A member of the RNA family "RtT RNA" from Sodalis-like endosymbiont of Proechinophthirus fluctus, 126 nucleotides long. From the family's description: This family represents a bacterial cis-regulatory element known as RtT RNA. The exact function of RtT is unknown although it is thought that it may be involved in changing the cellular response in relation to amino acid starvation. A reference for the family is Bosl and Kersten (1991), "A novel RNA product of the tyrT operon of Escherichia coli", Nucleic Acids Res. The family's consensus secondary structure is taken from published work.

RNA sequence: CUGAUAUUCUUAGGGUGAAGGUGAGAAUCUUCGAUCAAAGUUCACGUCUCGCUACGCGAGACAACGAUGCGCAGCAAGGCCCGUAGUGCGGCCGCAAGGUAGCGAAUCAUUCUUUCCCCCUCCCUU
Numbered sequence: 001c002u003g004a005u006a007u008u009c010u011u012a013g014g015g016u017g018a019a020g021g022u023g024a025g026a027a028u029c030u031u032c033g034a035u036c037a038a039a040g041u042u043c044a045c046g047u048c049u050c051g052c053u054a055c056g057c058g059a060g061a062c063a064a065c066g067a068u069g070c071g072c073a074g075c076a077a078g079g080c081c082c083g084u085a086g087u088g089c090g091g092c093c094g095c096a097a098g099g100u101a102g103c104g105a106a107u108c109a110u111u112c113u114u115u116c117c118c119c120c121u122c123c124c125u126u
Stems, first nucleotide, its partner, number of pairs: 015117001017115005022109001032090002035088001041085001043083001048058001065078001068076003